[Rfam]
This 93-nucleotide RNA sequence from Anisodus acutangulus belongs to the Rfam family "Small nucleolar RNA snoR27". NCBI's taxonomy places the organism under Eukaryota, Streptophyta, Embryophyta, lamiids, Anisodus. The base pairs follow the family's consensus structure, which was predicted with WAR.
RNA sequence: UUUGGAUCUAUGAUGAUUAGUUUUAUUACUGCGUUAUCUUUCUAGAAUUUCCAGUUAUGGGAUUGAAGAAGAAUUAUAUAACUGAGAUCCAAU
Numbered sequence: 001u002u003u004g005g006a007u008c009u010a011u012g013a014u015g016a017u018u019a020g021u022u023u024u025a026u027u028a029c030u031g032c033g034u035u036a037u038c039u040u041u042c043u044a045g046a047a048u049u050u051c052c053a054g055u056u057a058u059g060g061g062a063u064u065g066a067a068g069a070a071g072a073a074u075u076a077u078a079u080a081a082c083u084g085a086g087a088u089c090c091a092a093u
Base pairs, nucleotide, nucleotide: 002092003091004090005089006088007087
The family is grouped with related families in Rfam's "snR68 clan".